Rfam assigns this 122-nucleotide RNA from Oryctolagus cuniculus to the family "Small nucleolar RNA SNORA26". The snoRNA HBI-6 belong to the H/ACA family of snoRNAs, guiding the pseudouridylation of position U4522 if the 28S rRNA. HBI-6 is the human orthologue of mouse MBI-6 snoRNA. The family's RNA type in Rfam is H/ACA-box small nucleolar RNA. Gene Ontology terms of the family: RNA processing and nucleolus. The family's consensus secondary structure was predicted with RNAalifold.
[Rfam]
Nucleotides: 122
Base pairs, nucleotide, nucleotide: 002051004049006047007046008045010043014040016038017037019035058115060113061112062111063110064109071100072099073098074097075096076095077094079092080091081090
Number, partner (000 for none) and nucleotide at each position: 001000g002051u003000g004049u005000c006047c007046u008045u009000u010043u011000a012000g013000a014040g015000c016038u017037g018000a019035c020000a021000g022000a023000g024000u025000g026000c027000u028000u029000u030000a031000a032000g033000a034000g035019g036000c037017u038016a039000a040014c041000a042000u043010a044000u045008a046007a047006g048000u049004g050000g051002a052000a053000a054000g055000u056000a057000a058115g059000u060113c061112u062111c063110c064109a065000u066000a067000a068000a069000a070000c071100c072099c073098a074097g075096a076095g077094a078000a079092g080091a081090g082000a083000u084000g085000g086000u087000c088000g089000u090081u091080u092079c093000u094077u095076c096075u097074u098073u099072g100071g101000a102000u103000c104000c105000u106000g107000u108000c109064u110063g111062g112061a113060g114000u115058c116000a117000a118000c119000a120000g121000a122000u